This 100-nucleotide sequence belongs to the Rfam family "L4-Archaeoglobi ribosomal protein leades".
[Rfam]
RNA sequence: CUGACGGGCGCGUACGGGUCAAUUGCGGCUUGACAACACCCGAUCUCGCUUGUCGUCCCUCCGAAAAUGGAGUCGACGAGGGGGAGCGCGUAACAGUCAG
Numbered sequence: 001c002u003g004a005c006g007g008g009c010g011c012g013u014a015c016g017g018g019u020c021a022a023u024u025g026c027g028g029c030u031u032g033a034c035a036a037c038a039c040c041c042g043a044u045c046u047c048g049c050u051u052g053u054c055g056u057c058c059c060u061c062c063g064a065a066a067a068u069g070g071a072g073u074c075g076a077c078g079a080g081g082g083g084g085a086g087c088g089c090g091u092a093a094c095a096g097u098c099a100g
Base pairs, nucleotide, nucleotide: 001100002099003098004097005096008091009090010089011088012087013086015042016041017040018039023036024035025034026032044085045084046083047082053079054078055077056076057075
For this family Rfam cites "Discovery of 20 novel ribosomal leader candidates in bacteria and archaea" (Eckert and Weinberg, BMC Microbiol, 2020). The sequence is in the family's curated seed alignment.